The family of this 50-nucleotide RNA from Sellimonas intestinalis is "gut-2 RNA". By type it is a small RNA. The family's consensus secondary structure is taken from published work.
[Rfam]
RNA sequence: GGCAGUUUGAUAAAUCGGUAUCGAACGAAGGACUGAUAGGAGUCAGAAAU
Numbered sequence: 001g002g003c004a005g006u007u008u009g010a011u012a013a014a015u016c017g018g019u020a021u022c023g024a025a026c027g028a029a030g031g032a033c034u035g036a037u038a039g040g041a042g043u044c045a046g047a048a049a050u
Stems, first nucleotide, its partner, number of pairs: 005026002008023005031044004